[Rfam]
RNA sequence: UAAACGCACCGGGGGUGCCUGUAUCUGCUUCAGUCCUGGCUUUUGUCCUGGAUGUGGGCAGGGCCGGCUGAGAAAGUCCCUUCGAACCUGAACAGGAUAAUUCCUGCGUAGGGAGUGUGCAUUUUUUGUUGC
Numbered sequence: 001u002a003a004a005c006g007c008a009c010c011g012g013g014g015g016u017g018c019c020u021g022u023a024u025c026u027g028c029u030u031c032a033g034u035c036c037u038g039g040c041u042u043u044u045g046u047c048c049u050g051g052a053u054g055u056g057g058g059c060a061g062g063g064c065c066g067g068c069u070g071a072g073a074a075a076g077u078c079c080c081u082u083c084g085a086a087c088c089u090g091a092a093c094a095g096g097a098u099a100a101u102u103c104c105u106g107c108g109u110a111g112g113g114a115g116u117g118u119g120c121a122u123u124u125u126u127u128g129u130u131g132c
Stems, first nucleotide, its partner, number of pairs: 006120004011081004016075001017068003021064001087112004093106004
Dot-bracket structure: .....((((.((((.((((.(..........................................).)))......)..)))).....((((..((((......))))..))))....))))............
RNA: TPP riboswitch aptamer (THI element)